[Rfam]
RNA sequence: GGCACACGCUAGGGGUCCUGCAAGUCGCAAUUCGCGAUGCGCGGGUGAGAAACACCCUCUGAACCUGAUCUGGAUAAUGCCAGCGAAGGGAAGCUUAGUGAGCCACAA
Numbered sequence: 001g002g003c004a005c006a007c008g009c010u011a012g013g014g015g016u017c018c019u020g021c022a023a024g025u026c027g028c029a030a031u032u033c034g035c036g037a038u039g040c041g042c043g044g045g046u047g048a049g050a051a052a053c054a055c056c057c058u059c060u061g062a063a064c065c066u067g068a069u070c071u072g073g074a075u076a077a078u079g080c081c082a083g084c085g086a087a088g089g090g091a092a093g094c095u096u097a098g099u100g101a102g103c104c105a106c107a108a
Base pairs, nucleotide, nucleotide: 006096008094009093010092011058012057013056014055016052017045018044019043020042021041064089065088066087070083071082072081073080
Shown here is a 108-nucleotide sequence from Massilia sp. CF038, a member of the family "TPP riboswitch aptamer (THI element)".
The organism belongs to Massilia, within Bacteria.
The base pairs follow the family's consensus structure, which is taken from published work.
A search with the family's covariance model found it, with a score of 65 bits.